[Rfam]
Rfam assigns this 92-nucleotide sequence from Methylobacterium sp. Leaf104 to the family "Repression of heat shock gene expression (ROSE) element". On this family, see Nocker et al., Nucleic Acids Res 2001: "A mRNA-based thermosensor controls expression of rhizobial heat shock genes". It is annotated as an RNA thermoregulator. This family represents a 5' UTR cis-regulatory element found in heat shock mRNAs and is known as the ROSE (repression of heat shock gene expression) element. Its family is annotated with response to temperature stimulus and regulation of translation in the Gene Ontology. The family's consensus secondary structure is taken from published work.
Nucleotides: 092
Stems, first nucleotide, its partner, number of pairs: 001021006008015002025051003029047006052090005059083007067076003
Number, partner (000 for none) and nucleotide at each position: 001021u002020g003019c004018g005017a006016g007000g008015c009014u010000c011000g012000a013000u014009g015008g016006c017005u018004c019003g020002c021001g022000a023000u024000a025051g026050g027049g028000c029047g030046c031045c032044g033043g034042c035000u036000c037000u038000c039000g040000g041000g042034g043033c044032c045031g046030g047029u048000a049027u050026c051025c052090c053089u054088c055087g056086u057000c058000a059083u060082c061081a062080c063079g064078u065077u066000g067076c068075u069074c070000a071000a072000c073000g074069g075068a076067g077065g078064a079063u080062g081061u082060g083059g084000u085000c086056a087055u088054g089053a090052g091000g092000a